[Rfam]
RNA sequence: ACACAGCAUCUAGAUUGGGUCGACGCCCAGACCAACCUGCCUUCCCGGGCAAGGUGGUAUCCGAAAGGAGAUGUGGCUUGAAAGAGCAACUAUGCGGGGUGCG
Numbered sequence: 001a002c003a004c005a006g007c008a009u010c011u012a013g014a015u016u017g018g019g020u021c022g023a024c025g026c027c028c029a030g031a032c033c034a035a036c037c038u039g040c041c042u043u044c045c046c047g048g049g050c051a052a053g054g055u056g057g058u059a060u061c062c063g064a065a066a067g068g069a070g071a072u073g074u075g076g077c078u079u080g081a082a083a084g085a086g087c088a089a090c091u092a093u094g095c096g097g098g099g100u101g102c103g
Base pairs, nucleotide, nucleotide: 006074007073008072009071010070015030016029017028018027019026020025031058032057033056036054037053038052039050040049041048043099044098045097046096047095076087077086078085079084
Rfam assigns this 103-nucleotide RNA sequence from Aestuariivirga litoralis to the family "SAM-I/IV (S-adenosyl methionine) riboswitch aptamer". Its family is annotated with S-adenosylmethionine metabolic process and regulation of gene expression in the Gene Ontology. The base pairs follow the family's consensus structure, which is taken from published work. The organism belongs to Aestuariivirga, within Bacteria.